Shown here is a 59-nucleotide RNA, a member of the family "L31-Gammaproteobacteria ribosomal protein leader". Rfam classes the family as a cis-regulatory leader. For this family Rfam cites "Discovery of 20 novel ribosomal leader candidates in bacteria and archaea" (Eckert and Weinberg, BMC Microbiol, 2020). Its Rfam clan is "Ribosomal Protein L31 Leader clan".
[Rfam]
RNA sequence: CGUGUGGUGCUGUGCAAGGUAAACUUGGCACGGAGAGCGACACGGCCUUCUACUGAGGU
Dot-bracket structure: (((((.((.((((((............))))))...)).)))))...............